[Rfam]
Nucleotides: 096
Base pairs, nucleotide, nucleotide: 007051008050009049010048011047012046015041016040020038021037022035023032024031025030053069054068055067056066057065058064059063071091073094077089078088079087
Number, partner (000 for none) and nucleotide at each position: 001000g002000u003000a004000a005000a006000u007051g008050u009049u010048u011047u012046c013000u014000a015041g016040g017000g018000u019000u020038c021037c022035g023032c024031a025030c026000g027000u028000c029000a030025g031024u032023g033000g034000u035022c036000u037021g038020g039000u040016c041015c042000a043000a044000g045000a046012g047011a048010a049009a050008a051007c052000u053069c054068a055067u056066a057065a058064u059063c060000a061000u062000a063059g064058a065057u066056u067055a068054u069053g070000u071091c072000a073094c074000g075000g076000a077089a078088g079087g080000a081000u082000a083000a084000a085000a086000g087079c088078c089077u090000g091071g092000g093000a094073g095000a096000u